[Rfam]
RNA: MIR2912 microRNA precursor family
RNA sequence: UCUAGAACUCGAGAUAUGGACUAAACGCUGACAAUGUUUAGGAUGCAGGACAGAUUCGGACUUCUCUGUUGUUGCUAUAAUUUGAACUUGAAAAUGACUUUUUUAAAUCUUGGACUCCACAUGAAAGUUUUAGGCCUAUGUCUUAUCUUUCCAAC
Numbered sequence: 001u002c003u004a005g006a007a008c009u010c011g012a013g014a015u016a017u018g019g020a021c022u023a024a025a026c027g028c029u030g031a032c033a034a035u036g037u038u039u040a041g042g043a044u045g046c047a048g049g050a051c052a053g054a055u056u057c058g059g060a061c062u063u064c065u066c067u068g069u070u071g072u073u074g075c076u077a078u079a080a081u082u083u084g085a086a087c088u089u090g091a092a093a094a095u096g097a098c099u100u101u102u103u104u105a106a107a108u109c110u111u112g113g114a115c116u117c118c119a120c121a122u123g124a125a126a127g128u129u130u131u132a133g134g135c136c137u138a139u140g141u142c143u144u145a146u147c148u149u150u151c152c153a154a155c
Stems, first nucleotide, its partner, number of pairs: 003153001005151003009145001011144009021133005027128003034122003041117002044114001047111004053104002058099002062096001067091001071087003